L17-Actino-Proteobacteria ribosomal protein leader: a 53-nucleotide RNA from Nocardioides soli.
Lineage of the source: Bacteria > Actinomycetota > Propionibacteriales > Nocardioidaceae > Nocardioides.
A reference for the family is Eckert and Weinberg (2020), "Discovery of 20 novel ribosomal leader candidates in bacteria and archaea", BMC Microbiol.
RNA sequence: CGAUCGCCAUCCUGGGCGGUCGUCUACCCCGGUACCUCGUACGGCCGGAGAGA
Numbered sequence: 001c002g003a004u005c006g007c008c009a010u011c012c013u014g015g016g017c018g019g020u021c022g023u024c025u026a027c028c029c030c031g032g033u034a035c036c037u038c039g040u041a042c043g044g045c046c047g048g049a050g051a052g053a
Stems, first nucleotide, its partner, number of pairs: 001022008023053003027050001029048005
A search with the family's covariance model found it, with a score of 40 bits.